[Rfam]
RNA sequence: AACCACAUUAUCGAUAAAAGGAUUCACCCAUGAGAUGACGUGGUUGUUUCAUCUAGGAUGAGGACGUGAUAUCCUAUUAAUUUCGGGCGAUGGCUAGUAAUAUGAUGCUAUGUCCUCGUCCUAGGUAAAACACAUCAUCUCGCAGAUGAAUUCAUUCAUCGAUAGUGUUGUU
Numbered sequence: 001a002a003c004c005a006c007a008u009u010a011u012c013g014a015u016a017a018a019a020g021g022a023u024u025c026a027c028c029c030a031u032g033a034g035a036u037g038a039c040g041u042g043g044u045u046g047u048u049u050c051a052u053c054u055a056g057g058a059u060g061a062g063g064a065c066g067u068g069a070u071a072u073c074c075u076a077u078u079a080a081u082u083u084c085g086g087g088c089g090a091u092g093g094c095u096a097g098u099a100a101u102a103u104g105a106u107g108c109u110a111u112g113u114c115c116u117c118g119u120c121c122u123a124g125g126u127a128a129a130a131c132a133c134a135u136c137a138u139c140u141c142g143c144a145g146a147u148g149a150a151u152u153c154a155u156u157c158a159u160c161g162a163u164a165g166u167g168u169u170g171u172u
Stems, first nucleotide, its partner, number of pairs: 001172003005168003009164007017156002021152006028145001031142003035138004045132004051126002054123002057120002063114003070107004075102005
Rfam assigns this 172-nucleotide RNA from Oryza meridionalis to the family "MIR807 microRNA precursor family". Pairs were carried over by alignment from the consensus structure, which was predicted with WAR. It scores 120 bits against the family's covariance model. For this family Rfam cites "Rice embryogenic calli express a unique set of microRNAs, suggesting regulatory roles of microRNAs in plant post-embryogenic development" (Luo et al., FEBS Lett, 2006). Its family is annotated with RISC complex and miRNA-mediated post-transcriptional gene silencing in the Gene Ontology.